Background
Rfam assigns this 212-nucleotide RNA sequence from Mycobacterium sp. ITM-2016-00318 to the family "c-di-AMP riboswitch aptamer (ydaO/yuaA leader)". The match comes from Rfam's covariance-model search (76 bits).
[Rfam]
RNA sequence: UGUCCGAUAGCGCCGAGCUCCAUCCGUCGGGCAGGGAAACGACGAACAACAGGGAUGGAGGCGGGGGACCCACCGGUCCACCGAACUAAAAGGACCAGGAGCCGCUUGCGGCUCCUUGGGGUGAAGCCGAACCGUUCUCACCGACGGUCGGCCGGGCAACCUCUCCAGCCCGAACCCGACAGCUGACCUCGUGGGCGCAUCAGAGAGGAAUC
Number, nucleotide and partner (000 for none) at each position: 001u000002g000003u000004c000005c000006g000007a000008u000009a000010g000011c197012g196013c195014c194015g000016a000017g000018c060019u059020c058021c057022a056023u055024c054025c053026g000027u000028c000029g000030g000031g000032c000033a000034g000035g000036g000037a000038a000039a000040c000041g000042a000043c000044g000045a000046a000047c000048a000049a000050c000051a000052g000053g025054g024055a023056u022057g021058g020059a019060g018061g192062c191063g190064g189065g188066g187067g000068a000069c000070c000071c118072a117073c000074c000075g000076g000077u000078c000079c000080a000081c000082c000083g000084a000085a000086c000087u000088a000089a000090a000091a000092g000093g000094a000095c000096c000097a000098g000099g000100a000101g000102c000103c000104g000105c000106u000107u000108g000109c000110g000111g000112c000113u000114c000115c000116u000117u072118g071119g177120g176121g175122u000123g000124a000125a000126g000127c151128c150129g149130a148131a000132c000133c000134g000135u000136u000137c000138u000139c000140a000141c000142c000143g000144a000145c000146g000147g000148u130149c129150g128151g127152c000153c000154g171155g170156g169157c168158a000159a000160c000161c000162u000163c000164u000165c000166c000167a000168g157169c156170c155171c154172g000173a000174a000175c121176c120177c119178g000179a000180c000181a000182g000183c000184u000185g000186a000187c066188c065189u064190c063191g062192u061193g000194g014195g013196c012197g011198c000199a000200u000201c000202a000203g000204a000205g000206a000207g000208g000209a000210a000211u000212c000